Background:
A member of the RNA family "Group II catalytic intron D1-D4-3" from Proteiniclasticum aestuarii, 171 nucleotides long.
Nucleotides: 171
Base pairs, nucleotide, nucleotide: 001016003014004013005012006011027171030168035163039158040157041156042155043154044153045149046148047147048146049145061144062143063142064141065140070136071135072134075132076131077130078129079128080127081126082110083109084108085107088103089102090101091100
Number, partner (000 for none) and nucleotide at each position: 001016u002000a003014c004013a005012c006011c007000g008000c009000g010000a011006g012005g013004u014003g015000c016001a017000g018000c019000u020000g021000a022000a023000g024000g025000a026000a027171g028000c029000c030168g031000g032000u033000g034000g035163c036000a037000a038000a039158c040157u041156u042155c043154c044153g045149g046148u047147c048146u049145g050000a051000c052000g053000u054000a055000c056000a057000g058000a059000a060000a061144u062143c063142a064141c065140a066000u067000c068000a069000g070136g071135c072134a073000u074000a075132u076131g077130a078129a079128u080127c081126u082110g083109g084108g085107u086000g087000a088103g089102a090101u091100u092000g093000c094000u095000a096000a097000a098000c099000a100091a101090a102089u103088c104000a105000a106000a107085g108084c109083c110082c111000g112000a113000u114000a115000g116000c117000u118000a119000u120000c121000c122000g123000a124000a125000a126081a127080g128079a129078u130077u131076c132075a133000g134072u135071g136070u137000a138000a139000a140065u141064g142063u143062g144061g145049c146048a147047g148046a149045u150000a151000u152000a153044u154043g155042g156041a157040a158039g159000g160000a161000a162000a163035g164000a165000g166000u167000g168030c169000a170000c171027u
Pairs were carried over by alignment from the consensus structure. A search with the family's covariance model found it, with a score of 132 bits. NCBI's taxonomy places the organism under Bacteria, Clostridia, Eubacteriales, Clostridiaceae, Proteiniclasticum.